[Rfam]
The record is a 61-nucleotide sequence from Nicotiana attenuata, which matches "Plastid-psbN 5UTR RNA" in Rfam. By type it is a cis-regulatory element. NCBI's taxonomy places the organism under Eukaryota, Mesangiospermae, lamiids, Solanaceae, Nicotiana. Rfam describes the family as follows. Plastid psbN is a non-coding RNA (ncRNA) recognised in plastids. It was reported as a conserved 11 stem-loop in the prime untranslated region (5UTR) of psbN genes. It has been reported that the motif is retained in a subset of mature transcripts in barley, which can suggests a possible role in transcript alternative 5 prime processing. It scores 79 bits against the family's covariance model. On this family, see Zhelyazkova et al., Plant Cell 2012: "The primary transcriptome of barley chloroplasts: numerous noncoding RNAs and the dominating role of the plastid-encoded RNA polymerase". The base pairs follow the family's consensus structure, which was predicted with LocARNA.
RNA sequence: UGCGACAUCCAUCAAAGGAGUAGUUCCCCACCCAGGAGCUAUUUUACCAUAUUCCGAUUUU
Numbered sequence: 001u002g003c004g005a006c007a008u009c010c011a012u013c014a015a016a017g018g019a020g021u022a023g024u025u026c027c028c029c030a031c032c033c034a035g036g037a038g039c040u041a042u043u044u045u046a047c048c049a050u051a052u053u054c055c056g057a058u059u060u061u
Base pairs, nucleotide, nucleotide: 017045018044019043020042021041022040023039024038025037026036027035